Plastid-psbA-3 3UTR RNA: a 62-nucleotide RNA sequence from Halesia diptera.
A reference for the family is Richter et al. (2023), "Retrograde signaling in plants: A critical review focusing on the GUN pathway and beyond", Plant Commun.
RNA sequence: AAGGGAGCAAUAACCAAUUUCUUGUUUUAUCAAGAGAAGAGGGCGUUAUUGCUCCUUUACUU
Numbered sequence: 001a002a003g004g005g006a007g008c009a010a011u012a013a014c015c016a017a018u019u020u021c022u023u024g025u026u027u028u029a030u031c032a033a034g035a036g037a038a039g040a041g042g043g044c045g046u047u048a049u050u051g052c053u054c055c056u057u058u059a060c061u062u
Stems, first nucleotide, its partner, number of pairs: 001058014019041005